[Rfam]
RNA sequence: ACGACCUUACUUGAACAGGAUCUGUUCUAUAGGCUCGUACCUCUGUAUCCUUGACUUCUAAGGAGACAGGAAAUCAAGUCUGGUGGAUGAGCCAUGUCUGCUCGACCAGAGCGUGAUUAACAGACUCACCGGCUCGGGCUAGUUGACUCAGUGGAGGAUCGUUCUUAGUUAGCUUUGGCUGGCUAUGGUGGUCGAGCAGUUGUCUGACAGACU
Number, nucleotide and partner (000 for none) at each position: 001a038002c037003g035004a000005c033006c032007u031008u000009a000010c000011u000012u000013g027014a026015a025016c024017a023018g022019g000020a000021u000022c018023u017024g016025u015026u014027c013028u000029a000030u000031a007032g006033g005034c000035u003036c000037g002038u001039a000040c000041c000042u000043c069044u068045g067046u066047a000048u064049c063050c062051u061052u060053g059054a000055c000056u000057u000058c000059u053060a052061a051062g050063g049064a048065g000066a046067c045068a044069g043070g000071a000072a000073a000074u000075c000076a000077a000078g212079u211080c210081u209082g208083g000084u000085g000086g000087a000088u000089g000090a000091g000092c000093c000094a000095u000096g000097u000098c199099u198100g197101c196102u195103c194104g193105a192106c191107c190108a189109g000110a163111g162112c161113g160114u000115g000116a000117u000118u000119a000120a152121c151122a000123g149124a148125c000126u146127c145128a143129c142130c000131g140132g139133c138134u000135c000136g000137g000138g133139c132140u131141a000142g129143u128144u000145g127146a126147c000148u124149c123150a000151g121152u120153g000154g000155a000156g000157g000158a000159u000160c113161g112162u111163u110164c187165u000166u185167a184168g183169u182170u181171a180172g179173c178174u000175u000176u000177g000178g173179c172180u171181g170182g169183c168184u167185a166186u000187g164188g000189u108190g107191g106192u105193c104194g103195a102196g101197c100198a099199g098200u000201u000202g000203u000204c000205u000206g000207a000208c082209a081210g080211a079212c078213u000

Background: A member of the RNA family "Plant small nucleolar RNA U3", 213 nucleotides long. About the family: Small nucleolar RNAs (snoRNAs) are involved in the processing and modification of rRNA in the nucleolus. Rfam classes the family as a C/D-box small nucleolar RNA. A search with the family's covariance model found it, with a score of 184 bits.